[Rfam]
Rfam assigns this 89-nucleotide sequence from Myotis brandtii to the family "mir-9195 microRNA precursor family".

RNA sequence: AGAGGCCCAUCCGUGGCCAGGCGCAGAAUGCUUGCCUCUUCACUGGGGCGACGAAGCAAGCAUUCCGCCAGGCCGCUCACACUGCCUGC
Dot-bracket structure: ...(((......((((((..(.((.((((((((((....((.(....).))....)))))))))).))).)))))).......)))...